A member of the RNA family "SAM riboswitch aptamer (S box leader)" from Caproiciproducens galactitolivorans, 87 nucleotides long. A search with the family's covariance model found it, with a score of 65 bits.
RNA sequence: UAUCUAUUAAGAGUGUGUGAGGGACAAGCCCUAUGACCACACAGCAACCUACCAAACGGCAAGGUGCUAAUGCUUGAACGAUAGGUA
Numbered sequence: 001u002a003u004c005u006a007u008u009a010a011g012a013g014u015g016u017g018u019g020a021g022g023g024a025c026a027a028g029c030c031c032u033a034u035g036a037c038c039a040c041a042c043a044g045c046a047a048c049c050u051a052c053c054a055a056a057c058g059g060c061a062a063g064g065u066g067c068u069a070a071u072g073c074u075u076g077a078a079c080g081a082u083a084g085g086u087a
Stems, first nucleotide, its partner, number of pairs: 001087008013042005021031003025076004043068004048064002050061001052059002072079001

Overview: Taxonomically the source falls in Caproiciproducens (Bacteria, Clostridia, Eubacteriales, Acutalibacteraceae).